[Rfam]
RNA sequence: GCCACAAUAGCUCAGUUGGUAGAGUAACGCAUUCGUAACGCGUCGGUCGCGAGUUCGAAUCUCGCUUGUGGCU
Numbered sequence: 001g002c003c004a005c006a007a008u009a010g011c012u013c014a015g016u017u018g019g020u021a022g023a024g025u026a027a028c029g030c031a032u033u034c035g036u037a038a039c040g041c042g043u044c045g046g047u048c049g050c051g052a053g054u055u056c057g058a059a060u061c062u063c064g065c066u067u068g069u070g071g072c073u
Base pairs, nucleotide, nucleotide: 001072002071003070004069005068006067007066010025011024012023013022027043028042029041030040049065050064051063052062053061
The family of this 73-nucleotide RNA from Petrimonas mucosa is "tRNA". About the family: Transfer RNA (tRNA) molecules are approximately 80 nucleotides in length. The family's consensus secondary structure is taken from published work.